[Rfam]
RNA sequence: ACACCUUGUGGAGAUGGCAUUCCUCCCAAACCGCCGUUAAGCGCUCACCAGACGCUGUACGGCUGAUGAUGCCUACCAGGUC
Dot-bracket structure: .........[[[[..((((((.]]]]......((((.......................))))....)))))).........
Overview
Shown here is an 82-nucleotide RNA from Paraburkholderia sp. DHOC27, a member of the family "Fluoride riboswitch aptamer (crcB RNA motif)". Lineage of the source: Bacteria > Pseudomonadati > Betaproteobacteria > Burkholderiales > Paraburkholderia. The family's consensus secondary structure is taken from published work.